[Rfam]
This 95-nucleotide RNA sequence from endosymbiont 'TC1' of Trimyema compressum belongs to the Rfam family "Guanidine-I riboswitch aptamer". It scores 70 bits against the family's covariance model.
RNA sequence: AAGUUAGUUUUCUAGGGUUCCGCACAAAAGUGGUCUGGUCCGAGGUAAAACCCCAACAAAUAAGUUGGUCACGGAAGGAUAAAAGCCUGGGAGAG
Numbered sequence: 001a002a003g004u005u006a007g008u009u010u011u012c013u014a015g016g017g018u019u020c021c022g023c024a025c026a027a028a029a030g031u032g033g034u035c036u037g038g039u040c041c042g043a044g045g046u047a048a049a050a051c052c053c054c055a056a057c058a059a060a061u062a063a064g065u066u067g068g069u070c071a072c073g074g075a076a077g078g079a080u081a082a083a084a085g086c087c088u089g090g091g092a093g094a095g
Stems, first nucleotide, its partner, number of pairs: 007051005015041002020038002022035001023032003052068001055066003070090001072093001076088003